[Rfam]
RNA sequence: CCGCUCUGGAAAGCGGUUCCUGCUCGACAGGAACCCGCCCAUGGUGAAAAUCGACGACGGUCGGUGAAACUCUCAGGCUCAAGACAGAGGGGGA
Numbered sequence: 001c002c003g004c005u006c007u008g009g010a011a012a013g014c015g016g017u018u019c020c021u022g023c024u025c026g027a028c029a030g031g032a033a034c035c036c037g038c039c040c041a042u043g044g045u046g047a048a049a050a051u052c053g054a055c056g057a058c059g060g061u062c063g064g065u066g067a068a069a070c071u072c073u074c075a076g077g078c079u080c081a082a083g084a085c086a087g088a089g090g091g092g093g094a
Stems, first nucleotide, its partner, number of pairs: 001092002004089005015035008037078003041073001044072001046070001050065004
Glycine riboswitch aptamer: a 94-nucleotide RNA sequence from Terrimesophilobacter mesophilus. This family represents the bacterial glycine riboswitch.